[Rfam]
RNA sequence: AGAAAGGAGCAAUAAUCAUUUUCUUGUUAAACAAGAAAAUGAUUAUUGCUCCUUUCUUUUC
Numbered sequence: 001a002g003a004a005a006g007g008a009g010c011a012a013u014a015a016u017c018a019u020u021u022u023c024u025u026g027u028u029a030a031a032c033a034a035g036a037a038a039a040u041g042a043u044u045a046u047u048g049c050u051c052c053u054u055u056c057u058u059u060u061c
Base pairs, nucleotide, nucleotide: 001057002056003055004054005053006052007051008050009049010048011047012046013045014044015043016042017041018040019039022036023035024034025033026032

Source information
This 61-nucleotide RNA from Capsicum annuum belongs to the Rfam family "Plastid-psbA-2 3UTR RNA". A search with the family's covariance model found it, with a score of 70 bits. A reference for the family is Richter et al. (2023), "Retrograde signaling in plants: A critical review focusing on the GUN pathway and beyond", Plant Commun. About the family: Plastid psbA-2 is a non-coding RNA (ncRNA) present in plastids. The family is grouped with related families in Rfam's "Plastid-psbA 3UTR RNA clan". The base pairs follow the family's consensus structure, which was predicted with LocARNA.